[Rfam]
RNA sequence: AAGUAAAUCAGUAUAUGGGGCUGUUUCCCGGACAUUCAACUGUGGGAAUGCAGGAAAAAUAAAUGGGGGAUAAAAUCCCCCAUUUUCUUAUUAACU
Numbered sequence: 001a002a003g004u005a006a007a008u009c010a011g012u013a014u015a016u017g018g019g020g021c022u023g024u025u026u027c028c029c030g031g032a033c034a035u036u037c038a039a040c041u042g043u044g045g046g047a048a049u050g051c052a053g054g055a056a057a058a059a060u061a062a063a064u065g066g067g068g069g070a071u072a073a074a075a076u077c078c079c080c081c082a083u084u085u086u087c088u089u090a091u092u093a094a095c096u
Stems, first nucleotide, its partner, number of pairs: 008038001010036003016032001019029002061085011
RNA: sraA